mir-24 microRNA precursor family: a 60-nucleotide sequence from Ictalurus punctatus. The base pairs follow the family's consensus structure, which was predicted with RNAalifold. Rfam's curators write: This family represents the microRNA (miRNA) mir-24 family. miRNAs are transcribed as ~70nt precursors (modelled here) and subsequently processed by the Dicer enzyme to give a ~22nt product. In this case the mature sequence comes from the 3' arm of the precursor. The extents of the hairpin precursors are not generally known and are estimated based on hairpin prediction. The products are thought to have regulatory roles through complementarity to mRNA. The involvement of Dicer in miRNA processing suggests a relationship with the phenomenon of RNA interference. miRNAs are numbered based on the sequence of the mature RNA. miR-24 has been identified in human and mouse. The literature on the family includes a 2001 paper in Science by Lagos-Quintana et al., "Identification of novel genes coding for small expressed RNAs". Rfam 15.1 lists 1,372 matches to the family in 601 species.

[Rfam]
RNA sequence: GGUGCCUUCUGAGCUGAUAUCAGUUGUAGUAAAUCACUGGCUCAGUUCAGCAGGAACAGG
Number, nucleotide and partner (000 for none) at each position: 001g000002g057003u056004g000005c054006c053007u052008u000009c050010u049011g048012a047013g046014c045015u044016g043017a042018u000019a000020u040021c039022a038023g037024u036025u000026g000027u000028a000029g000030u000031a000032a000033a000034u000035c000036a024037c023038u022039g021040g020041c000042u017043c016044a015045g014046u013047u012048c011049a010050g009051c000052a007053g006054g005055a000056a003057c002058a000059g000060g000
NCBI's taxonomy places the organism under Eukaryota, Bilateria, Actinopteri, Otophysi, Ictalurus. Gene Ontology terms of the family: RISC complex and miRNA-mediated post-transcriptional gene silencing.